[Rfam]
Shown here is a 134-nucleotide sequence from Chinchilla lanigera, a member of the family "Small nucleolar RNA SNORA42/SNORA80 family". Rfam 15.1 lists 1,535 matches to the family in 183 species. The family's consensus secondary structure was predicted with RNAalifold. Rfam describes the family as follows. The members of this family belong to the H/ACA class of snoRNAs that guide the sites of modification of uridines to pseudouridines. Human ACA42 (SNORA42) was cloned from HeLa cells by immunoprecipitation with anti-GAR1 antibody. Its is predicted to guide the pseudouridylation of residues U109 and U572 of 18S rRNA. ACA42 shares the same host gene with ACA26, ACA46, ACA50. This family also includes mammalian snoRNA ACA67 (SNORA80) which was identified by computational screening and its expression in mouse experimentally verified by Northern blot and primer extension analysis. A search with the family's covariance model found it, with a score of 74 bits. The organism belongs to Chinchilla, within Eukaryota. The family's RNA type in Rfam is H/ACA-box small nucleolar RNA.
RNA sequence: GCAUAGUGGUGGAUUUACGGUGGGUUCUCCUGUGUGUGCCUUUCAUAGUGUACCCAUGUGACAGCAAAGUGUGGCCUUGAACCACUGCUCAGCCUCUGCUGUGGGCGGUGAGCACCAAAGGAGGCGGUACAGUU
Numbered sequence: 001g002c003a004u005a006g007u008g009g010u011g012g013a014u015u016u017a018c019g020g021u022g023g024g025u026u027c028u029c030c031u032g033u034g035u036g037u038g039c040c041u042u043u044c045a046u047a048g049u050g051u052a053c054c055c056a057u058g059u060g061a062c063a064g065c066a067a068a069g070u071g072u073g074g075c076c077u078u079g080a081a082c083c084a085c086u087g088c089u090c091a092g093c094c095u096c097u098g099c100u101g102u103g104g105g106c107g108g109u110g111a112g113c114a115c116c117a118a119a120g121g122a123g124g125c126g127g128u129a130c131a132g133u134u
Stems, first nucleotide, its partner, number of pairs: 001059004006053003015048003019044002022041003026036001072127001074125004088112002090108001092106004